Rfam assigns this 127-nucleotide RNA from Wenjunlia tyrosinilytica to the family "Streptomyces-metH RNA". By type it is a small RNA. It scores 87 bits against the family's covariance model.
[Rfam]
RNA sequence: GUGUCCGCCACGCGGAACGCUCCCCGGCCGCUCGAGCCUGUCCGGCUACGCUGGCCAGGUGCGAGCACGGCCCCCCGGCCGAGCUCGCAAAGCCGACAGCCGUCGCAUCCCAGGGAGCACAUCCAUG
Numbered sequence: 001g002u003g004u005c006c007g008c009c010a011c012g013c014g015g016a017a018c019g020c021u022c023c024c025c026g027g028c029c030g031c032u033c034g035a036g037c038c039u040g041u042c043c044g045g046c047u048a049c050g051c052u053g054g055c056c057a058g059g060u061g062c063g064a065g066c067a068c069g070g071c072c073c074c075c076c077g078g079c080c081g082a083g084c085u086c087g088c089a090a091a092g093c094c095g096a097c098a099g100c101c102g103u104c105g106c107a108u109c110c111c112a113g114g115g116a117g118c119a120c121a122u123c124c125a126u127g
Stems, first nucleotide, its partner, number of pairs: 060089004065084002068081005092106002095104003